The family of this 138-nucleotide sequence from Liquorilactobacillus cacaonum is "Ribosomal protein L10 leader". By type it is a cis-regulatory leader. Pairs were carried over by alignment from the consensus structure, which was predicted with CMfinder. The literature on the family includes a 1994 paper in Prog Nucleic Acid Res Mol Biol by Zengel and Lindahl, "Diverse mechanisms for regulating ribosomal protein synthesis in Escherichia coli".
[Rfam]
RNA sequence: UUUUUUAUAAUGAUUCUACCUAAGACUCAGGUGGCGAAAGCCUUAAUAUAGUGCCUGCCGAGGAAUUUAAGUGAAAUUAACUUUUACUUUGAAAUUUUCUCUAUGUCUUGGUGGACAUAGGGUUUUUUAGUUAAGACC
Numbered sequence: 001u002u003u004u005u006u007a008u009a010a011u012g013a014u015u016c017u018a019c020c021u022a023a024g025a026c027u028c029a030g031g032u033g034g035c036g037a038a039a040g041c042c043u044u045a046a047u048a049u050a051g052u053g054c055c056u057g058c059c060g061a062g063g064a065a066u067u068u069a070a071g072u073g074a075a076a077u078u079a080a081c082u083u084u085u086a087c088u089u090u091g092a093a094a095u096u097u098u099c100u101c102u103a104u105g106u107c108u109u110g111g112u113g114g115a116c117a118u119a120g121g122g123u124u125u126u127u128u129a130g131u132u133a134a135g136a137c138c
Stems, first nucleotide, its partner, number of pairs: 028057005033042003099122009